[Rfam]
RNA: Alphaproteobacteria transfer-messenger RNA
Organism: Nitrobacter sp. Nb-311A
RNA sequence: ACCCUUUUUUCCUCACGUUUUGCAGACUAUAUUGAAAGCGCCGGUUCGCCGGCUAUGGAAAUAAAUGGCCGCCGCAAUAAACCAUUCGGACCCGGGGGCAGUACCCGGCGCCUCCACCAGAGCCCGACUCGGCAGAUUUGGGUUCUGGCGGGGGCGAAACAGGAUCGACGAGGGCGUAAAGGGCUCGCUUUUUCCCGGUAUGGUUCCGCCGUUAUCGGGCUAUGCAAUAGUUGCAAACGACAACUAUGCUCCGGUUGCUCAGGCUGCGUAACGCAGUUUGAAAGACCACUCUGAAGUCCUGAUGGGUUAAGCUCCGUCAGGCGGGGUUCGGAGGCACCUGGCAACAGAAGCCUCCACU
Numbered sequence: 001a002c003c004c005u006u007u008u009u010u011c012c013u014c015a016c017g018u019u020u021u022g023c024a025g026a027c028u029a030u031a032u033u034g035a036a037a038g039c040g041c042c043g044g045u046u047c048g049c050c051g052g053c054u055a056u057g058g059a060a061a062u063a064a065a066u067g068g069c070c071g072c073c074g075c076a077a078u079a080a081a082c083c084a085u086u087c088g089g090a091c092c093c094g095g096g097g098g099c100a101g102u103a104c105c106c107g108g109c110g111c112c113u114c115c116a117c118c119a120g121a122g123c124c125c126g127a128c129u130c131g132g133c134a135g136a137u138u139u140g141g142g143u144u145c146u147g148g149c150g151g152g153g154g155c156g157a158a159a160c161a162g163g164a165u166c167g168a169c170g171a172g173g174g175c176g177u178a179a180a181g182g183g184c185u186c187g188c189u190u191u192u193u194c195c196c197g198g199u200a201u202g203g204u205u206c207c208g209c210c211g212u213u214a215u216c217g218g219g220c221u222a223u224g225c226a227a228u229a230g231u232u233g234c235a236a237a238c239g240a241c242a243a244c245u246a247u248g249c250u251c252c253g254g255u256u257g258c259u260c261a262g263g264c265u266g267c268g269u270a271a272c273g274c275a276g277u278u279u280g281a282a283a284g285a286c287c288a289c290u291c292u293g294a295a296g297u298c299c300u301g302a303u304g305g306g307u308u309a310a311g312c313u314c315c316g317u318c319a320g321g322c323g324g325g326g327u328u329c330g331g332a333g334g335c336a337c338c339u340g341g342c343a344a345c346a347g348a349a350g351c352c353u354c355c356a357c358u
Base pairs, nucleotide, nucleotide: 040053041052042051043050044049057195058194059193060192061191067189068188069187071184072183073182082174083173086171087170088169092108093107094106095105096104109156110155111154112153113152114151115150196211197210198209199208201222202221203220206218207217324339325338326337327336330355331354332353333352334351335350